The family of this 94-nucleotide RNA from Gossypium mustelinum is "Small nucleolar RNA snoR27". Lineage of the source: Eukaryota > Tracheophyta > Mesangiospermae > Malvales > Gossypium. The match comes from Rfam's covariance-model search (51 bits). The family's consensus secondary structure was predicted with WAR. The literature on the family includes a 2001 paper in RNA by Brown et al., "Multiple snoRNA gene clusters from Arabidopsis". Rfam 15.1 lists 649 matches to the family in 212 species. Its family is annotated with nucleolus and RNA processing in the Gene Ontology. Clan: snR68 clan.
RNA sequence: AUUGGAUCCAUGAUGCUACUUUACAAAACUGGCAUCAUCUAUCCGAACUUCCUGUUCAAGGGAUUUAAGAUGAUGUUCCAUUCUGAGAUCCAGA
Numbered sequence: 001a002u003u004g005g006a007u008c009c010a011u012g013a014u015g016c017u018a019c020u021u022u023a024c025a026a027a028a029c030u031g032g033c034a035u036c037a038u039c040u041a042u043c044c045g046a047a048c049u050u051c052c053u054g055u056u057c058a059a060g061g062g063a064u065u066u067a068a069g070a071u072g073a074u075g076u077u078c079c080a081u082u083c084u085g086a087g088a089u090c091c092a093g094a
Base pairs, nucleotide, nucleotide: 002093003092004091005090006089007088